The family of this 73-nucleotide sequence from Rhodnius prolixus is "mir-137 microRNA precursor family".

RNA sequence: GUUGGCCACGCGUAUUCUUGGGGAACUAGCACACAUGAUAAGUUGUUAUUGCUUGAGAAUACACGUAGCUGAC
Numbered sequence: 001g002u003u004g005g006c007c008a009c010g011c012g013u014a015u016u017c018u019u020g021g022g023g024a025a026c027u028a029g030c031a032c033a034c035a036u037g038a039u040a041a042g043u044u045g046u047u048a049u050u051g052c053u054u055g056a057g058a059a060u061a062c063a064c065g066u067a068g069c070u071g072a073c
Base pairs, nucleotide, nucleotide: 001073002072003071004070005069008066009065010064012062013061014060015059016058017057018056019055020054021053022052025050027048028047029046030045031044032042
The family is grouped with related families in Rfam's "mir-137 clan". It scores 69 bits against the family's covariance model. The family's consensus secondary structure was predicted with RNAalifold. On this family, see Ruby et al., Genome Res 2007: "Evolution, biogenesis, expression, and target predictions of a substantially expanded set of Drosophila microRNAs".